The record is a 183-nucleotide RNA sequence from Mycoavidus cysteinexigens, which matches "Proteobacterial sRNA psRNA2" in Rfam. NCBI's taxonomy places the organism under Bacteria, Pseudomonadati, Pseudomonadota, Betaproteobacteria, Mycoavidus. On this family, see Gvakharia et al., FEMS Microbiol Lett 2010: "Computational prediction and transcriptional analysis of sRNAs in Nitrosomonas europaea". The pairing is the family consensus, mapped onto this sequence. It is annotated as a small RNA.
[Rfam]
RNA sequence: GGGUUAUUCCUACGCGCUUACGCGCUGGUUUAAUAAAGAUUCGCACCUCUAUCAAACCGGAUAACCCCACCAUUUGGCAAGGCCUUACUGUACGAUCAAGUCGGAACUAAUACACUUAUGGUGAGGGCGAACAUCGCUACCAUGCUGCAUUUUUAGAUUACGCCAAGCAUAGCGGAUUUGUCA
Numbered sequence: 001g002g003g004u005u006a007u008u009c010c011u012a013c014g015c016g017c018u019u020a021c022g023c024g025c026u027g028g029u030u031u032a033a034u035a036a037a038g039a040u041u042c043g044c045a046c047c048u049c050u051a052u053c054a055a056a057c058c059g060g061a062u063a064a065c066c067c068c069a070c071c072a073u074u075u076g077g078c079a080a081g082g083c084c085u086u087a088c089u090g091u092a093c094g095a096u097c098a099a100g101u102c103g104g105a106a107c108u109a110a111u112a113c114a115c116u117u118a119u120g121g122u123g124a125g126g127g128c129g130a131a132c133a134u135c136g137c138u139a140c141c142a143u144g145c146u147g148c149a150u151u152u153u154u155a156g157a158u159u160a161c162g163c164c165a166a167g168c169a170u171a172g173c174g175g176a177u178u179u180g181u182c183a
Stems, first nucleotide, its partner, number of pairs: 001067007009060002014025004027058005033052003037048002075165003081158001085156002090107002093103004109151003114146001